[Rfam]
RNA sequence: GUACAAAUUCAUAAUACACCUUAUAUAAUCUCGGGGAUAUGGCCCGUAAGUCUCUACCUGACGACCAUGAAUUGUCAGACUAUAAGGGGAGAUAUACGAACG
Numbered sequence: 001g002u003a004c005a006a007a008u009u010c011a012u013a014a015u016a017c018a019c020c021u022u023a024u025a026u027a028a029u030c031u032c033g034g035g036g037a038u039a040u041g042g043c044c045c046g047u048a049a050g051u052c053u054c055u056a057c058c059u060g061a062c063g064a065c066c067a068u069g070a071a072u073u074g075u076c077a078g079a080c081u082a083u084a085a086g087g088g089g090a091g092a093u094a095u096a097c098g099a100a101c102g
Stems, first nucleotide, its partner, number of pairs: 019087007029049001032046004058078007
This 102-nucleotide RNA from Pontibacillus litoralis belongs to the Rfam family "Purine riboswitch aptamer". NCBI's taxonomy places the organism under Bacteria, Bacillati, Bacillota, Bacillaceae, Pontibacillus litoralis.